A member of the RNA family "pemK RNA" from Streptococcus agalactiae, 63 nucleotides long.
[Rfam]
RNA sequence: ACAAUGAUACUUCUGAACGUUCAGGCUGUCAGCGUAAAAGGACAGCGGGUGAGAUGCCCAUGA
Numbered sequence: 001a002c003a004a005u006g007a008u009a010c011u012u013c014u015g016a017a018c019g020u021u022c023a024g025g026c027u028g029u030c031a032g033c034g035u036a037a038a039a040g041g042a043c044a045g046c047g048g049g050u051g052a053g054a055u056g057c058c059c060a061u062g063a
Base pairs, nucleotide, nucleotide: 012060013024014023015022016021025046026045027044029042030041047059048058049057